RNA sequence: GGGCAUUCGGAACACUUGCACUCUGGGCUACUGACUGAGAACUUGCUUCUCCCCUCCCGCCCAGGGGAAAGUCCCCGGACCCGAGGCAGAAAGUGCCCUGGCUAGAUCCAGCGUCGGCCAGCGCUGCACCGCAACGGGCUGAGACGCUCCUGUGAGCCGAGCUCGGUCAUUGCUGGUUGACUUUGUCAGUUAAAUAGUAAUGCAAGUAAGCAGCUACUUAACAGAACGGGGCUCAUUCUCGGAAUGCA
Numbered sequence: 001g002g003g004c005a006u007u008c009g010g011a012a013c014a015c016u017u018g019c020a021c022u023c024u025g026g027g028c029u030a031c032u033g034a035c036u037g038a039g040a041a042c043u044u045g046c047u048u049c050u051c052c053c054c055u056c057c058c059g060c061c062c063a064g065g066g067g068a069a070a071g072u073c074c075c076c077g078g079a080c081c082c083g084a085g086g087c088a089g090a091a092a093g094u095g096c097c098c099u100g101g102c103u104a105g106a107u108c109c110a111g112c113g114u115c116g117g118c119c120a121g122c123g124c125u126g127c128a129c130c131g132c133a134a135c136g137g138g139c140u141g142a143g144a145c146g147c148u149c150c151u152g153u154g155a156g157c158c159g160a161g162c163u164c165g166g167u168c169a170u171u172g173c174u175g176g177u178u179g180a181c182u183u184u185g186u187c188a189g190u191u192a193a194a195u196a197g198u199a200a201u202g203c204a205a206g207u208a209a210g211c212a213g214c215u216a217c218u219u220a221a222c223a224g225a226a227c228g229g230g231g232c233u234c235a236u237u238c239u240c241g242g243a244a245u246g247c248a
Base pairs, nucleotide, nucleotide: 003247004246005245006244007243008242010240011239014207015206016205017204018203019202022065023064024063025062026061027060028059037051038050039049040048041047070233071232073231074230075229076228085097086096087095088094098111099110100109101108114180115179116178118176119175120174121173122172123171125169126168136164137163138162139161146157147156148155149154209218210217
RNase MRP: a 248-nucleotide RNA from Acanthochromis polyacanthus. The base pairs follow the family's consensus structure, which is taken from published work. It is annotated as a ribozyme. The match comes from Rfam's covariance-model search (142 bits). Taxonomically the source falls in Acanthochromis (Eukaryota, Eumetazoa, Euteleostomi, Neopterygii). About the family: RNase MRP is an enzymatically active ribonucleoprotein with two distinct roles in eukaryotes. In mitochondria it plays a direct role in the initiation of mitochondrial DNA replication. In the nucleus it is involved in precursor rRNA processing, where it cleaves the internal transcribed spacer 1 between 18S and 5.8S rRNAs. Despite distinct functions, RNase MRP has been shown to be evolutionarily related to RNase P. Like eukaryotic RNase P, RNase MRP is not catalytically active without associated protein subunits.